[Rfam]
RNA sequence: UGCUAUUUAUGAUGAGAAUUAUUAAAAACAGUUAUCCCUGGCUGAGAUUAUUGUAUGAUUGACAACAGUUUUUUCUGAAAAGCG
Numbered sequence: 001u002g003c004u005a006u007u008u009a010u011g012a013u014g015a016g017a018a019u020u021a022u023u024a025a026a027a028a029c030a031g032u033u034a035u036c037c038c039u040g041g042c043u044g045a046g047a048u049u050a051u052u053g054u055a056u057g058a059u060u061g062a063c064a065a066c067a068g069u070u071u072u073u074u075c076u077g078a079a080a081a082g083c084g
Stems, first nucleotide, its partner, number of pairs: 001084004006079001